[Rfam]
RNA sequence: AUGCACCUUGCACUCUACGCCUUUCCUUUCAAUGGGCUGGUAUGAUUUAUAAAGGAUGCGAAAUGAAUGAAUGGGAAGUUCGAAGACUUGCGGUUAUCAGCUUUCACGGCACCGCGAGUUCAAAACUAUCACCACAUUU
Numbered sequence: 001a002u003g004c005a006c007c008u009u010g011c012a013c014u015c016u017a018c019g020c021c022u023u024u025c026c027u028u029u030c031a032a033u034g035g036g037c038u039g040g041u042a043u044g045a046u047u048u049a050u051a052a053a054g055g056a057u058g059c060g061a062a063a064u065g066a067a068u069g070a071a072u073g074g075g076a077a078g079u080u081c082g083a084a085g086a087c088u089u090g091c092g093g094u095u096a097u098c099a100g101c102u103u104u105c106a107c108g109g110c111a112c113c114g115c116g117a118g119u120u121c122a123a124a125a126c127u128a129u130c131a132c133c134a135c136a137u138u139u
Stems, first nucleotide, its partner, number of pairs: 003059003006055004016044002020040002025036003073133002075130002077127004085120009100110003
Dot-bracket structure: ..(((((((......((..((...(((......)))..))..)).......)))).))).............((((((((....(((((((((......(((.....))).)))))))))...)))).)).))......
RNA: Caenorhabditis snoRNA ceN41